Rfam assigns this 104-nucleotide RNA sequence from Rhinopithecus bieti to the family "Small nucleolar RNA SNORD89". The match comes from Rfam's covariance-model search (91 bits). The family has 18 seed sequences and 642 matches in Rfam 15.1. A reference for the family is Huttenhofer et al. (2001), "RNomics: an experimental approach that identifies 201 candidates for novel, small, non-messenger RNAs in mouse", EMBO J.
[Rfam]
RNA sequence: ACUGAGGAAUGAUGACAAGAAAAGGCCGAAUUGCAGUGUCUCCAUCAGCAGUUUGCUCUCUCUGGGCACACGAUGACAAAAUUUCCUACUAGUCUGACCUCAGU
Numbered sequence: 001a002c003u004g005a006g007g008a009a010u011g012a013u014g015a016c017a018a019g020a021a022a023a024g025g026c027c028g029a030a031u032u033g034c035a036g037u038g039u040c041u042c043c044a045u046c047a048g049c050a051g052u053u054u055g056c057u058c059u060c061u062c063u064g065g066g067c068a069c070a071c072g073a074u075g076a077c078a079a080a081a082u083u084u085c086c087u088a089c090u091a092g093u094c095u096g097a098c099c100u101c102a103g104u
Stems, first nucleotide, its partner, number of pairs: 001104007014094003025034002035090004048086001051071002054068005072085002075082001

It is annotated as a C/D-box small nucleolar RNA. The base pairs follow the family's consensus structure, which was predicted with RNAalifold. Rfam's curators write: snoRNA HBII-289 belongs to the family of C/D snoRNAs. It is the human orthologue of the mouse MBII-289 and has no identified RNA target.